[Rfam]
HNH endonuclease-associated RNA and ORF (HEARO) RNA: a 255-nucleotide sequence from Diaphorobacter sp. J5-51. Lineage of the source: Bacteria > Pseudomonadati > Pseudomonadota > Betaproteobacteria > Diaphorobacter. It scores 97 bits against the family's covariance model. For this family Rfam cites "Exceptional structured noncoding RNAs revealed by bacterial metagenome analysis" (Weinberg et al., Nature, 2009). The base pairs follow the family's consensus structure, which is taken from published work. Rfam 15.1 lists 952 matches to the family in 249 species.

RNA sequence: GUCAACCACCCCCCCCUAAAGGAAGGGGCUUGAGGGAGCCAUCCCAAUAGCCCGAGGUUGACCAGACCGAGAAAGGGGAAGCGAUUUUCCAAUCUACGUUGUGCAGAAGACAAAAGACCUACCCAGGAAUGCUUCCUCAGUUCCUGGCCCUGGAAGUGGCAAUUGCAGACACGCUUCGGGUAAGCACGAAACGGAUUGCCGCCGAUUGGUUAAAACCAAUCACCUGCUGCGCAACAUGGUCGAGGGGAGAGGCUC
Numbered sequence: 001g002u003c004a005a006c007c008a009c010c011c012c013c014c015c016c017u018a019a020a021g022g023a024a025g026g027g028g029c030u031u032g033a034g035g036g037a038g039c040c041a042u043c044c045c046a047a048u049a050g051c052c053c054g055a056g057g058u059u060g061a062c063c064a065g066a067c068c069g070a071g072a073a074a075g076g077g078g079a080a081g082c083g084a085u086u087u088u089c090c091a092a093u094c095u096a097c098g099u100u101g102u103g104c105a106g107a108a109g110a111c112a113a114a115a116g117a118c119c120u121a122c123c124c125a126g127g128a129a130u131g132c133u134u135c136c137u138c139a140g141u142u143c144c145u146g147g148c149c150c151u152g153g154a155a156g157u158g159g160c161a162a163u164u165g166c167a168g169a170c171a172c173g174c175u176u177c178g179g180g181u182a183a184g185c186a187c188g189a190a191a192c193g194g195a196u197u198g199c200c201g202c203c204g205a206u207u208g209g210u211u212a213a214a215a216c217c218a219a220u221c222a223c224c225u226g227c228u229g230c231g232c233a234a235c236a237u238g239g240u241c242g243a244g245g246g247g248a249g250a251g252g253c254u255c
Base pairs, nucleotide, nucleotide: 001062002061003060004059005058006057007056010028011027012025015022016021065241066240067239068238069237070095071094072093098235099234100233101232102231103230104229105228106227108225118153123147124146125145126144127143128142129141130140133249134248135247136246137245138244156202157201158200159199160198161197162196163195164194172193173192175190176189177188178187180185